The family of this 64-nucleotide RNA from Myotis lucifugus is "mir-9242 microRNA precursor family".
RNA sequence: GGCCUCCCUCUGUGGGGUGAUCAAUCCUGGAGCCCUGUGAUAGAUUGCCCCACAGAGGGAGGCC
Numbered sequence: 001g002g003c004c005u006c007c008c009u010c011u012g013u014g015g016g017g018u019g020a021u022c023a024a025u026c027c028u029g030g031a032g033c034c035c036u037g038u039g040a041u042a043g044a045u046u047g048c049c050c051c052a053c054a055g056a057g058g059g060a061g062g063c064c
Base pairs, nucleotide, nucleotide: 001064002063003062004061005060006059007058008057009056010055011054012053013052014051015050016049017048018047019046020045021044022043024041025040026039028037029036030035
Taxonomically the source falls in Myotis (Eukaryota, Euteleostomi, Mammalia, Laurasiatheria).